[Rfam]
RNA sequence: AUAGCAGGGAUUGUGUGUGUCGGCGUUGUGCCAGAAUCACGUGCGCAUUGUUUCCGAAAGAGUUCCUGCGGCAUUGAUCUGAGGAAGAUGGGCAGUUGUUUUCAUUCUUUCCAUUGAAAUUCUCAACAAUCAUCUUCCCCACAUUC
Numbered sequence: 001a002u003a004g005c006a007g008g009g010a011u012u013g014u015g016u017g018u019g020u021c022g023g024c025g026u027u028g029u030g031c032c033a034g035a036a037u038c039a040c041g042u043g044c045g046c047a048u049u050g051u052u053u054c055c056g057a058a059a060g061a062g063u064u065c066c067u068g069c070g071g072c073a074u075u076g077a078u079c080u081g082a083g084g085a086a087g088a089u090g091g092g093c094a095g096u097u098g099u100u101u102u103c104a105u106u107c108u109u110u111c112c113a114u115u116g117a118a119a120u121u122c123u124c125a126a127c128a129a130u131c132a133u134c135u136u137c138c139c140c141a142c143a144u145u146c
Stems, first nucleotide, its partner, number of pairs: 004069004009065002015046006081140001083138009095127004
Rfam assigns this 146-nucleotide sequence from Nyssa sinensis to the family "small nucleolar RNA snoR135". The family has 6 seed sequences and 837 matches in Rfam 15.1. A reference for the family is Chen and Wu (2009), "Mining small RNA sequencing data: a new approach to identify small nucleolar RNAs in Arabidopsis", Nucleic Acids Res. The family's consensus secondary structure was predicted with RNAalifold.